[Rfam]
RNA sequence: UAUACUCAAAUUUUCCGAGUAUAAAUUUCUAAGGCUUUUAUGCUAUGGAAUUUAUGCCGAUAGGGUAUAGAAAGAAAUUUCUAUGCCUCCCGUGUUAGGAAAGGGAAAUUUGAGUUGUUGAA
Number, nucleotide and partner (000 for none) at each position: 001u000002a000003u000004a115005c000006u113007c000008a000009a000010a000011u108012u107013u106014u105015c104016c103017g000018a000019g057020u056021a055022u054023a053024a052025a051026u050027u049028u048029c047030u000031a000032a000033g044034g043035c042036u000037u000038u000039u000040a000041u000042g035043c034044u033045a000046u000047g029048g028049a027050a026051u025052u024053u023054a022055u021056g020057c019058c000059g000060a000061u000062a000063g088064g087065g086066u085067a084068u083069a082070g081071a080072a079073a078074g000075a000076a000077a000078u073079u072080u071081c070082u069083a068084u067085g066086c065087c064088u063089c099090c098091c000092g000093u000094g000095u000096u000097a000098g090099g089100a000101a000102a000103g016104g015105g014106a013107a012108a011109u000110u000111u000112g000113a006114g000115u004116u000117g000118u000119u000120g000121a000122a000